[Rfam]
RNA sequence: GGCAAUCGUCUUACCUGAACAAUAUUAGAGUGCUAUAUGGAAAUAUCUAAUACUGUCAGGUAAUGAUGAUUGCC
Dot-bracket structure: (((((((((((((((((..((.(((((((................))))))).)).))))))).))))))))))
RNA: mir-236 microRNA precursor family
Organism: Podargus strigoides